[Rfam]
RNA sequence: GGUCAUGAGUUCCAGUAACAAGCCCCGGCUUACUGGACGGCAACCCUCCACCGCGGUGGGGUGCCCCGGGUGAAGACCAGGCCCUGCGUCACCAGGACGCAGGACAAGCGCGGGCA
Numbered sequence: 001g002g003u004c005a006u007g008a009g010u011u012c013c014a015g016u017a018a019c020a021a022g023c024c025c026c027g028g029c030u031u032a033c034u035g036g037a038c039g040g041c042a043a044c045c046c047u048c049c050a051c052c053g054c055g056g057u058g059g060g061g062u063g064c065c066c067c068g069g070g071u072g073a074a075g076a077c078c079a080g081g082c083c084c085u086g087c088g089u090c091a092c093c094a095g096g097a098c099g100c101a102g103g104a105c106a107a108g109c110g111c112g113g114g115c116a
Base pairs, nucleotide, nucleotide: 001078002077003076004075009038011037012036013035014034015033016032021030022029039065040064041063044061045060046059048056049055081105083103084102085101086100087099088098089097090096
The record is a 116-nucleotide RNA from Arthrobacter sp. MYb227, which matches "SAM (S-adenosyl methionine) riboswitch aptamer" in Rfam. Its family is annotated with S-adenosylmethionine metabolic process and regulation of gene expression in the Gene Ontology. A reference for the family is Weinberg et al. (2008), "The aptamer core of SAM-IV riboswitches mimics the ligand-binding site of SAM-I riboswitches", RNA. The organism belongs to Arthrobacter, within Bacteria.